[Rfam]
RNA sequence: GGCGAUAAACGGCCAUCGUAAUAAACCCUUCGGACCCGGGGGCGGUACCCGGCGCCUCCACCCGAGCCCAUUCGAGAGAGUGGGUUCCGGCGGGGGCGAAAUAGGAUCGACGAGGGCGUAAAGGGUGGGCUUUCGCUCGGCAUGGUUCCGCCGUUAUCGGGCCGAACCUAUAGUUGCGAAUGACAACUAUGCUCCGGUGGCUGUCGCCGCGUAA
Number, nucleotide and partner (000 for none) at each position: 001g137002g136003c135004g134005a133006u000007a000008a000009a000010c000011g000012g000013c000014c127015a126016u125017c124018g000019u000020a000021a000022u000023a000024a000025a000026c116027c115028c114029u000030u113031c112032g111033g000034a000035c000036c052037c051038g050039g049040g048041g000042g000043c000044g000045g000046u000047a000048c040049c039050c038051g037052g036053c098054g097055c096056c095057u094058c093059c092060a000061c000062c000063c000064g000065a000066g000067c000068c000069c000070a000071u000072u000073c000074g000075a000076g000077a000078g000079a000080g000081u000082g000083g000084g000085u000086u000087c000088c000089g000090g000091c000092g059093g058094g057095g056096g055097c054098g053099a000100a000101a000102u000103a000104g000105g000106a000107u000108c000109g000110a000111c032112g031113a030114g028115g027116g026117c000118g000119u000120a000121a000122a000123g000124g017125g016126u015127g014128g000129g000130c000131u000132u000133u005134c004135g003136c002137u001138c153139g152140g151141c150142a000143u000144g000145g000146u000147u000148c000149c000150g141151c140152c139153g138154u000155u000156a000157u000158c000159g000160g000161g000162c000163c000164g000165a000166a000167c000168c000169u000170a000171u000172a000173g000174u000175u000176g000177c000178g000179a000180a000181u000182g000183a000184c000185a000186a000187c000188u000189a000190u000191g000192c000193u000194c000195c000196g000197g000198u000199g000200g000201c000202u000203g000204u000205c000206g000207c000208c000209g000210c000211g000212u000213a000214a000